[Rfam]
Plastid-clpP 5UTR RNA: a 67-nucleotide RNA from Pelargonium fulgidum. Rfam describes the family as follows. Plastid clpP is a non-coding RNA (ncRNA) recognised in plastids. It was found in the prime untranslated region (5UTR) of a protease complex subunit (clpP) in plastids, suggesting a posible cis-regulatory function. It is annotated as a cis-regulatory element. The family has 343 seed sequences and 2,105 matches in Rfam 15.1. Lineage of the source: Eukaryota > Streptophyta > Embryophyta > Spermatophyta > Pelargonium.
RNA sequence: GUUUUGUUCGUAGGAACAAAGAGAAGCAGGUCUAUUUUAGACCCGAUAAGGAUCAAGACGCAAUGGG
Numbered sequence: 001g002u003u004u005u006g007u008u009c010g011u012a013g014g015a016a017c018a019a020a021g022a023g024a025a026g027c028a029g030g031u032c033u034a035u036u037u038u039a040g041a042c043c044c045g046a047u048a049a050g051g052a053u054c055a056a057g058a059c060g061c062a063a064u065g066g067g
Base pairs, nucleotide, nucleotide: 002021003020005018006017007016008015009014042067043066044065050059

Pairs were carried over by alignment from the consensus structure, which was predicted with LocARNA. On this family, see Richter et al., Plant Commun 2023: "Retrograde signaling in plants: A critical review focusing on the GUN pathway and beyond".